[Rfam]
RNA: mir-393 microRNA precursor family
RNA sequence: AGAGGAGGCAUCCAAAGGGAUCGCAUUGAUCCUAAGCUAGCAAAGCCUUCUUGAUCAUAUCGCGCGAUCCCUAAAUAGUUUCGGAUCAUGCUAUCCCUUUGGAUUUCUCCUU
Numbered sequence: 001a002g003a004g005g006a007g008g009c010a011u012c013c014a015a016a017g018g019g020a021u022c023g024c025a026u027u028g029a030u031c032c033u034a035a036g037c038u039a040g041c042a043a044a045g046c047c048u049u050c051u052u053g054a055u056c057a058u059a060u061c062g063c064g065c066g067a068u069c070c071c072u073a074a075a076u077a078g079u080u081u082c083g084g085a086u087c088a089u090g091c092u093a094u095c096c097c098u099u100u101g102g103a104u105u106u107c108u109c110c111u112u
Base pairs, nucleotide, nucleotide: 002112003111004110005109006108008106010104011103012102013101014100015099016098017097018096019095020094021093023091024090025089026088028087029086030085031084032083036080